[Rfam]
RNA: R2 RNA element
Organism: Agrilus planipennis
RNA sequence: AUUUUAUUGUAUUGGAAAUUUUCAUAAUUUCAAAUGCAUACAAGGUAGUCAAAUAUCUCUUCAAUUCGGUUGAAGAGGACCUUCAUUGGUCCUAGAACGGCCUGAGGUAGAGGGGUUUUAGUCGGUAGGUCCGAGGACUUCUUCCUCGGGAAUCCGACACUACCCAGUCGUACGGACGGCUGGGUGUCUUUUGAAGAUUUCCCCUCUUCCCCGAAA
Numbered sequence: 001a002u003u004u005u006a007u008u009g010u011a012u013u014g015g016a017a018a019u020u021u022u023c024a025u026a027a028u029u030u031c032a033a034a035u036g037c038a039u040a041c042a043a044g045g046u047a048g049u050c051a052a053a054u055a056u057c058u059c060u061u062c063a064a065u066u067c068g069g070u071u072g073a074a075g076a077g078g079a080c081c082u083u084c085a086u087u088g089g090u091c092c093u094a095g096a097a098c099g100g101c102c103u104g105a106g107g108u109a110g111a112g113g114g115g116u117u118u119u120a121g122u123c124g125g126u127a128g129g130u131c132c133g134a135g136g137a138c139u140u141c142u143u144c145c146u147c148g149g150g151a152a153u154c155c156g157a158c159a160c161u162a163c164c165c166a167g168u169c170g171u172a173c174g175g176a177c178g179g180c181u182g183g184g185u186g187u188c189u190u191u192u193g194a195a196g197a198u199u200u201c202c203c204c205u206c207u208u209c210c211c212c213g214a215a216a
Stems, first nucleotide, its partner, number of pairs: 043058005065215005106210002109207002112203003121158005130150008160186001162185005
Dot-bracket structure: ..........................................(((((......)))))......(((((....................................((.((.(((......(((((....((((((((.....))))))))...))))).(.(((((..............))))))..............)))..)).))))))).